[Rfam]
RNA sequence: UGCUCAGUGAUUAUAGCCAAUUACAUUGGCAAUAUACGCUAUGCUGACCAUAUUUUGAUGAGAAGUUGUAUAUGAGAGCU
Numbered sequence: 001u002g003c004u005c006a007g008u009g010a011u012u013a014u015a016g017c018c019a020a021u022u023a024c025a026u027u028g029g030c031a032a033u034a035u036a037c038g039c040u041a042u043g044c045u046g047a048c049c050a051u052a053u054u055u056u057g058a059u060g061a062g063a064a065g066u067u068g069u070a071u072a073u074g075a076g077a078g079c080u
Base pairs, nucleotide, nucleotide: 002079003078004077005076
Shown here is an 80-nucleotide RNA from Triticum aestivum, a member of the family "Small nucleolar RNA U54". Its Rfam clan is "U54 clan". It is annotated as a C/D-box small nucleolar RNA. About the family: U54 is a C/D box small nucleolar RNA, which acts as a methylation guide for 18S ribosomal RNA in plants. The family's consensus secondary structure was predicted with PFOLD.